This 84-nucleotide RNA sequence from Microthlaspi erraticum belongs to the Rfam family "Small nucleolar RNA R160". Rfam's curators write: snoR160 is a C/D box small nucleolar RNA, which acts as a methylation guide for 25S ribosomal RNA in plants. snoR160 has been alternatively named snoZ270 in rice. The source organism's lineage runs through Eukaryota, Streptophytina, Embryophyta, malvids and Microthlaspi. Rfam links the family to the GO terms RNA processing and nucleolus. The match comes from Rfam's covariance-model search (65 bits).
RNA sequence: AGCAUGAUGAUGAGAAUAUUUGCCUCUGAAAUCAAAUUCAUGUUGAUAUAUUUAUAUACAACCUUCAAAGUUCUCUGAAUUGCU
Numbered sequence: 001a002g003c004a005u006g007a008u009g010a011u012g013a014g015a016a017u018a019u020u021u022g023c024c025u026c027u028g029a030a031a032u033c034a035a036a037u038u039c040a041u042g043u044u045g046a047u048a049u050a051u052u053u054a055u056a057u058a059c060a061a062c063c064u065u066c067a068a069a070g071u072u073c074u075c076u077g078a079a080u081u082g083c084u
Stems, first nucleotide, its partner, number of pairs: 001084004
Dot-bracket structure: ((((............................................................................))))
For this family Rfam cites "The high diversity of snoRNAs in plants: identification and comparative study of 120 snoRNA genes from Oryza sativa" (Chen et al., Nucleic Acids Res, 2003).